[Rfam]
Nucleotides: 098
Base pairs, nucleotide, nucleotide: 018084019083020082021081022080023079024078025077029047031045032044033043034042056074057073058072059071060070061069
Number, partner (000 for none) and nucleotide at each position: 001000u002000c003000a004000u005000c006000u007000u008000a009000a010000u011000a012000a013000g014000u015000g016000u017000u018084a019083u020082c021081u022080a023079a024078u025077a026000u027000a028000a029047u030000u031045u032044a033043g034042c035000g036000a037000u038000a039000u040000g041000g042034g043033c044032u045031a046000u047029a048000g049000u050000u051000u052000c053000u054000a055000c056074c057073a058072a059071u060070c061069c062000c063000c064000u065000u066000a067000a068000a069061g070060g071059a072058u073057u074056g075000a076000c077025u078024a079023u080022u081021a082020g083019a084018u085000u086000a087000a088000a089000c090000a091000a092000u093000a094000c095000g096000u097000a098000u